[Rfam]
The family of this 79-nucleotide RNA from Poecilia reticulata is "mir-10 microRNA precursor family". A reference for the family is Ambros (2001), "microRNAs: tiny regulators with great potential", Cell. The source organism's lineage runs through Eukaryota, Vertebrata, Ovalentaria, Cyprinodontiformes and Poecilia.
RNA sequence: CUAUAUCUACCCUGUAGAUCCGGAUUUGUGUCAAAAUGUCUAAAAGCAUCACAAAUUCAGUUCUAGGGGAGUAUAUAGU
Numbered sequence: 001c002u003a004u005a006u007c008u009a010c011c012c013u014g015u016a017g018a019u020c021c022g023g024a025u026u027u028g029u030g031u032c033a034a035a036a037u038g039u040c041u042a043a044a045a046g047c048a049u050c051a052c053a054a055a056u057u058c059a060g061u062u063c064u065a066g067g068g069g070a071g072u073a074u075a076u077a078g079u
Base pairs, nucleotide, nucleotide: 002077003076004075005074006073010069011068012067016064017063018062020060022058023057024056025055026054027053028052029051030050
It scores 58 bits against the family's covariance model. The family's consensus secondary structure was predicted with PFOLD.